[Rfam]
RNA sequence: CCAGACGGCCGGAUGGCCGCCCUCCGGCAACGGGGAAACCCGCCGGGGGGAGGAAAGUCCGGGCUCCACGGAAGCACGGUGCCGGGUAACGCCCGGCGGGGGCGACCCCAGGGAAAGUGCCACAGAAAGCAAACCGCCCAUGAUCCCCGCCUCCGGGUGGGACGGCAUGGGCAAGGGUGAAAGGGUGCGGUAAGAGCGCACCGCGCCCCCGGCGACGGGGGUGGCAUGGUAAACCCCACCGGGAGCAAGACCGAAUAGGGGUGGCACGGCCGGGAAACCGGCCGAAGCGCGCUUCCGCGCAGCCGCCCGGGUGGGUCGCGUGAGGCGUCCGGCAACGGGCGUCCCAGAGGAAUGGCCAUCCCCCGGAUACCGUCCAGCCCGCUGGAUACGGUCCGGCGGACAGAACCCGGCUUACAGGCCGUCUGGCGUC
Numbered sequence: 001c002c003a004g005a006c007g008g009c010c011g012g013a014u015g016g017c018c019g020c021c022c023u024c025c026g027g028c029a030a031c032g033g034g035g036a037a038a039c040c041c042g043c044c045g046g047g048g049g050g051a052g053g054a055a056a057g058u059c060c061g062g063g064c065u066c067c068a069c070g071g072a073a074g075c076a077c078g079g080u081g082c083c084g085g086g087u088a089a090c091g092c093c094c095g096g097c098g099g100g101g102g103c104g105a106c107c108c109c110a111g112g113g114a115a116a117g118u119g120c121c122a123c124a125g126a127a128a129g130c131a132a133a134c135c136g137c138c139c140a141u142g143a144u145c146c147c148c149g150c151c152u153c154c155g156g157g158u159g160g161g162a163c164g165g166c167a168u169g170g171g172c173a174a175g176g177g178u179g180a181a182a183g184g185g186u187g188c189g190g191u192a193a194g195a196g197c198g199c200a201c202c203g204c205g206c207c208c209c210c211g212g213c214g215a216c217g218g219g220g221g222u223g224g225c226a227u228g229g230u231a232a233a234c235c236c237c238a239c240c241g242g243g244a245g246c247a248a249g250a251c252c253g254a255a256u257a258g259g260g261g262u263g264g265c266a267c268g269g270c271c272g273g274g275a276a277a278c279c280g281g282c283c284g285a286a287g288c289g290c291g292c293u294u295c296c297g298c299g300c301a302g303c304c305g306c307c308c309g310g311g312u313g314g315g316u317c318g319c320g321u322g323a324g325g326c327g328u329c330c331g332g333c334a335a336c337g338g339g340c341g342u343c344c345c346a347g348a349g350g351a352a353u354g355g356c357c358a359u360c361c362c363c364c365g366g367a368u369a370c371c372g373u374c375c376a377g378c379c380c381g382c383u384g385g386a387u388a389c390g391g392u393c394c395g396g397c398g399g400a401c402a403g404a405a406c407c408c409g410g411c412u413u414a415c416a417g418g419c420c421g422u423c424u425g426g427c428g429u430c
Stems, first nucleotide, its partner, number of pairs: 001426010011415001012360007020050009055413003059410005064245004073294002077241005082096005097111001098109004112236002117234002119230003134176002136172007144164001184202006203225001204223008249317004259308006287300004324343008
Record summary
Bacterial RNase P class A: a 430-nucleotide sequence from Rhodospirillum centenum. The family's RNA type in Rfam is ribozyme. It is one of the family's seed sequences. The source organism's lineage runs through Bacteria, Pseudomonadota, Alphaproteobacteria, Rhodospirillum and Rhodospirillum centenum.